[Rfam]
RNA sequence: GGGUGUCAGCUGUAUGUCGCAGUGAGACAGGUUAAAUACAGGCGAUGGUCGGGCCGCCUCG
Numbered sequence: 001g002g003g004u005g006u007c008a009g010c011u012g013u014a015u016g017u018c019g020c021a022g023u024g025a026g027a028c029a030g031g032u033u034a035a036a037u038a039c040a041g042g043c044g045a046u047g048g049u050c051g052g053g054c055c056g057c058c059u060c061g
Stems, first nucleotide, its partner, number of pairs: 005028003009023003043061003047058003
The family of this 61-nucleotide RNA from Affinibrenneria salicis is "nhaA-I RNA". Pairs were carried over by alignment from the consensus structure, which is taken from published work. About the family: Acidobacteria, Alphaproteobacteria, Betaproteobacteria and Gammaproteobacteria, Verrucomicrobia, cand. division NC10. It is annotated as a riboswitch.